The record is a 131-nucleotide RNA sequence, which matches "Betaproteobacteria-1 RNA" in Rfam.
RNA sequence: GAUUGGAUCUGGACAGGGCCACUGGUCGUCGUCAGCGGAUCAAUCGAGAAGUGCUACUGGUGGGAUAGAGUCUGCAAAAGCACACAAACAGGUGUCGAAGCUAGCGCCUGUGACUCGAAAGGCUGGCGGGG
Numbered sequence: 001g002a003u004u005g006g007a008u009c010u011g012g013a014c015a016g017g018g019c020c021a022c023u024g025g026u027c028g029u030c031g032u033c034a035g036c037g038g039a040u041c042a043a044u045c046g047a048g049a050a051g052u053g054c055u056a057c058u059g060g061u062g063g064g065a066u067a068g069a070g071u072c073u074g075c076a077a078a079a080g081c082a083c084a085c086a087a088a089c090a091g092g093u094g095u096c097g098a099a100g101c102u103a104g105c106g107c108c109u110g111u112g113a114c115u116c117g118a119a120a121g122g123c124u125g126g127c128g129g130g131g
Stems, first nucleotide, its partner, number of pairs: 001045005007040005032060004051083005069115004088111006100127006
Background
The family's RNA type in Rfam is small RNA.